[Rfam]
RNA sequence: CAGCAUCGCUAGGGGUCCUGUGCGGCAAGCUGUGGUGUCCUUAUCCAGACUGGAUGGGGAUGUUAUCCGCUUCAUGUUGCACGGGUGAGAAAUACCCUUGGAACCUGACCCGGUUAAUCCCGGCGUAGGGAAGCGCAAUCUGCAUGGU
Numbered sequence: 001c002a003g004c005a006u007c008g009c010u011a012g013g014g015g016u017c018c019u020g021u022g023c024g025g026c027a028a029g030c031u032g033u034g035g036u037g038u039c040c041u042u043a044u045c046c047a048g049a050c051u052g053g054a055u056g057g058g059g060a061u062g063u064u065a066u067c068c069g070c071u072u073c074a075u076g077u078u079g080c081a082c083g084g085g086u087g088a089g090a091a092a093u094a095c096c097c098u099u100g101g102a103a104c105c106u107g108a109c110c111c112g113g114u115u116a117a118u119c120c121c122g123g124c125g126u127a128g129g130g131a132a133g134c135g136c137a138a139u140c141u142g143c144a145u146g147g148u
Stems, first nucleotide, its partner, number of pairs: 007135004011098004016092001017085011104129004110123004
This 148-nucleotide RNA from Aquitalea sp. FJL05 belongs to the Rfam family "TPP riboswitch aptamer (THI element)". Lineage of the source: Bacteria > Pseudomonadota > Neisseriales > Chromobacteriaceae > Aquitalea. The family has 115 seed sequences and 16,130 matches in Rfam 15.1.